[Rfam]
RNA sequence: UGGACGCAGGCGGCAGCACACCAUUAACAUCGGUGACGGGAAGAUAGUCGCUCCCGACGCAUGUGGACCAGUGAAAACUUUGUGAGACUGA
Numbered sequence: 001u002g003g004a005c006g007c008a009g010g011c012g013g014c015a016g017c018a019c020a021c022c023a024u025u026a027a028c029a030u031c032g033g034u035g036a037c038g039g040g041a042a043g044a045u046a047g048u049c050g051c052u053c054c055c056g057a058c059g060c061a062u063g064u065g066g067a068c069c070a071g072u073g074a075a076a077a078c079u080u081u082g083u084g085a086g087a088c089u090g091a
Base pairs, nucleotide, nucleotide: 001070002069003068005066007063008062010060011059012058019035020034021033022032037056038055039054040053041052
RNA: Tick-borne Flavivirus exoribonuclease-resistant RNA element
Organism: Orthoflavivirus royalense